Shown here is a 72-nucleotide RNA sequence from Capitella teleta, a member of the family "bZIP non canonical Hac1/Xbp1 intron". Rfam describes the family as follows. bZIP intron RNA is a non-canonical intron that was first reported in HAC1 gene in yeast and XBP1 gene in Metazoa. NCBI's taxonomy places the organism under Eukaryota, Opisthokonta, Metazoa, Sedentaria, Capitella. Rfam 15.1 lists 1,325 matches to the family in 1,320 species. By type it is a small RNA. The match comes from Rfam's covariance-model search (43 bits).

[Rfam]
RNA sequence: AGCCGAGUGUGUGUCAGAGUCUGCAGUACUCUCAAGUACUCCUCUGCCGAAGGAGAAGGCACACACUCUGCU
Number, nucleotide and partner (000 for none) at each position: 001a072002g071003c070004c000005g068006a067007g066008u000009g064010u063011g062012u061013g060014u000015c000016a032017g031018a030019g029020u028021c000022u000023g000024c000025a000026g000027u000028a020029c019030u018031c017032u016033c000034a000035a000036g000037u000038a000039c055040u054041c053042c052043u051044c000045u000046g000047c000048c000049g000050a000051a043052g042053g041054a040055g039056a000057a000058g000059g000060c013061a012062c011063a010064c009065a000066c007067u006068c005069u000070g003071c002072u001